[Rfam]
RNA sequence: UCCGGGGGAAGCUCACCGCCGAGGCCACCCACUGGGUGCGCGUCACCCAAGCCCCGCCUCGGGGAAGGUCUGAGGUAAGGGCCGCGUAACGGCUCUAGCAGAGCCCCGCCCGCGAUGGGGCGGGUGAGCCACCAGCAAGGGGGGGCGCCGCGUCAUUUACGGUGGCUCAAAGCCCGGGCAGGAGAAACCGCAGCAGGUUCCGCUCUGACGUGAAUCCCGGUGGAUGCCCGUGGCCCCCGCGGUGCUUUGAGACAGACUCACGGCCGGCGAUCGCUGAGUCCAAUGGGUGAGGUGGGGCAGGGCCCUACAACCCAAUUCAGACUACUCUCCCCCGGA
Numbered sequence: 001u002c003c004g005g006g007g008g009a010a011g012c013u014c015a016c017c018g019c020c021g022a023g024g025c026c027a028c029c030c031a032c033u034g035g036g037u038g039c040g041c042g043u044c045a046c047c048c049a050a051g052c053c054c055c056g057c058c059u060c061g062g063g064g065a066a067g068g069u070c071u072g073a074g075g076u077a078a079g080g081g082c083c084g085c086g087u088a089a090c091g092g093c094u095c096u097a098g099c100a101g102a103g104c105c106c107c108g109c110c111c112g113c114g115a116u117g118g119g120g121c122g123g124g125u126g127a128g129c130c131a132c133c134a135g136c137a138a139g140g141g142g143g144g145g146c147g148c149c150g151c152g153u154c155a156u157u158u159a160c161g162g163u164g165g166c167u168c169a170a171a172g173c174c175c176g177g178g179c180a181g182g183a184g185a186a187a188c189c190g191c192a193g194c195a196g197g198u199u200c201c202g203c204u205c206u207g208a209c210g211u212g213a214a215u216c217c218c219g220g221u222g223g224a225u226g227c228c229c230g231u232g233g234c235c236c237c238c239g240c241g242g243u244g245c246u247u248u249g250a251g252a253c254a255g256a257c258u259c260a261c262g263g264c265c266g267g268c269g270a271u272c273g274c275u276g277a278g279u280c281c282a283a284u285g286g287g288u289g290a291g292g293u294g295g296g297g298c299a300g301g302g303c304c305c306u307a308c309a310a311c312c313c314a315a316u317u318c319a320g321a322c323u324a325c326u327c328u329c330c331c332c333c334g335g336a
Base pairs, nucleotide, nucleotide: 001336002335003334004333007330008329009328012291013290014289015288016287017286020061021060022059023058024057034048035047036046037045038044070320071319072318073317074316080265081264082263083262091105092104093103094102095101106123107122108121109120110119111118124261125260126259127258128257130255144246145245146244147243148242149241150240151239152238292308293307294306295305296304297303298302